Notes
The record is a 100-nucleotide RNA sequence from Patiria miniata, which matches "Vault RNA" in Rfam. The family's consensus secondary structure is taken from published work.

RNA sequence: GUGCCGGCGUUGGCCGAGUGGAUACUUCGAUUUAUUCUCAAACACGUAGUGGAAACGAGUUCGGAACCUCAUAGAUCCACUGGCGCGAUCCGGCUUUUUU
Numbered sequence: 001g002u003g004c005c006g007g008c009g010u011u012g013g014c015c016g017a018g019u020g021g022a023u024a025c026u027u028c029g030a031u032u033u034a035u036u037c038u039c040a041a042a043c044a045c046g047u048a049g050u051g052g053a054a055a056c057g058a059g060u061u062c063g064g065a066a067c068c069u070c071a072u073a074g075a076u077c078c079a080c081u082g083g084c085g086c087g088a089u090c091c092g093g094c095u096u097u098u099u100u
Stems, first nucleotide, its partner, number of pairs: 003094005013084004018080004026065005
Dot-bracket structure: ..(((((.....((((.((((....(((((..............................)))))...........)))))))).....)))))......